Rfam assigns this 107-nucleotide RNA sequence from Arthrobacter sp. HMWF013 to the family "SAM riboswitch aptamer (S box leader)". Its family is annotated with regulation of gene expression in the Gene Ontology. Pairs were carried over by alignment from the consensus structure, which is taken from published work. NCBI's taxonomy places the organism under Bacteria, Actinomycetota, Micrococcales, Micrococcaceae, Arthrobacter.
[Rfam]
RNA sequence: UACCCAUCCGGAGCGGCCGAGAGACCUGGAUCGUUGACGCCGCAGCAACCGCGCAUGCGCAGGGAUUUUCCUGCCGGCACAGGUGCUACUGCCAGGACCGAUGGAAA
Numbered sequence: 001u002a003c004c005c006a007u008c009c010g011g012a013g014c015g016g017c018c019g020a021g022a023g024a025c026c027u028g029g030a031u032c033g034u035u036g037a038c039g040c041c042g043c044a045g046c047a048a049c050c051g052c053g054c055a056u057g058c059g060c061a062g063g064g065a066u067u068u069u070c071c072u073g074c075c076g077g078c079a080c081a082g083g084u085g086c087u088a089c090u091g092c093c094a095g096g097a098c099c100g101a102u103g104g105a106a107a
Base pairs, nucleotide, nucleotide: 001107004104005103006102007101008100013043014042015041016040017039021032022031026095027094028093029092044087045086046085047084049083050082051080053078054077091099
Dot-bracket structure: (..(((((....(((((...((...[[[[.))......)))))((((.(((.((......................)).).))))))...(]]]]...))))))..)